[Rfam]
RNA sequence: CUUCAUUGUUCCAAAUCCACACAUGCGCCGGCACGUGCAGCGGGGUGCCCCGAAAGGGGUUGCUGUUCGGGGCGCAUGGAGGCCCAAC
Numbered sequence: 001c002u003u004c005a006u007u008g009u010u011c012c013a014a015a016u017c018c019a020c021a022c023a024u025g026c027g028c029c030g031g032c033a034c035g036u037g038c039a040g041c042g043g044g045g046u047g048c049c050c051c052g053a054a055a056g057g058g059g060u061u062g063c064u065g066u067u068c069g070g071g072g073c074g075c076a077u078g079g080a081g082g083c084c085c086a087a088c
Stems, first nucleotide, its partner, number of pairs: 022078008034069002037066006047060005
RNA: t44 RNA
Organism: Ectothiorhodospira sp. PHS-1